[Rfam]
RNA: Plastid-psbA-4 3UTR RNA
RNA sequence: GAAAGUAAAGGAGCAAUAAUAAAUUUCUUGUUAUAUAAAGAGGUUUGUUAUUGCUCCUUUACUA
Numbered sequence: 001g002a003a004a005g006u007a008a009a010g011g012a013g014c015a016a017u018a019a020u021a022a023a024u025u026u027c028u029u030g031u032u033a034u035a036u037a038a039a040g041a042g043g044u045u046u047g048u049u050a051u052u053g054c055u056c057c058u059u060u061a062c063u064a
Stems, first nucleotide, its partner, number of pairs: 007060012022045002025042005